RNA sequence: AGAUGAGGAUGAUGAUUUGAACGUUUCCCUAUUGGUUUGAUUGCCGAAAUAACGGCGACACCAUGUAUCAGCUUUAUCUGACUCAUCU
Numbered sequence: 001a002g003a004u005g006a007g008g009a010u011g012a013u014g015a016u017u018u019g020a021a022c023g024u025u026u027c028c029c030u031a032u033u034g035g036u037u038u039g040a041u042u043g044c045c046g047a048a049a050u051a052a053c054g055g056c057g058a059c060a061c062c063a064u065g066u067a068u069c070a071g072c073u074u075u076a077u078c079u080g081a082c083u084c085a086u087c088u
Stems, first nucleotide, its partner, number of pairs: 002087004039059001042057004

Rfam assigns this 88-nucleotide RNA sequence from Rosa chinensis to the family "Small nucleolar RNA Z102/R77". The family's consensus secondary structure was predicted with PFOLD. It scores 65 bits against the family's covariance model. Taxonomically the source falls in Rosa (Eukaryota, Streptophytina, Spermatophyta, Magnoliopsida).